[Rfam]
RNA: azaaromatic riboswitch aptamer (yjdF RNA)
Organism: Peptacetobacter hominis
RNA sequence: UAAGACAAAGAUAAAAACACAGUCUGGUUGGUAGUCCAGACGUACAAAUAUGUAUCAGUAGCCUUCCUCCUUGGUCGUCCGUUCUUUGUCCUCAUAUA
Numbered sequence: 001u002a003a004g005a006c007a008a009a010g011a012u013a014a015a016a017a018c019a020c021a022g023u024c025u026g027g028u029u030g031g032u033a034g035u036c037c038a039g040a041c042g043u044a045c046a047a048a049u050a051u052g053u054a055u056c057a058g059u060a061g062c063c064u065u066c067c068u069c070c071u072u073g074g075u076c077g078u079c080c081g082u083u084c085u086u087u088g089u090c091c092u093c094a095u096a097u098a
Stems, first nucleotide, its partner, number of pairs: 004090008022041006042055005066074002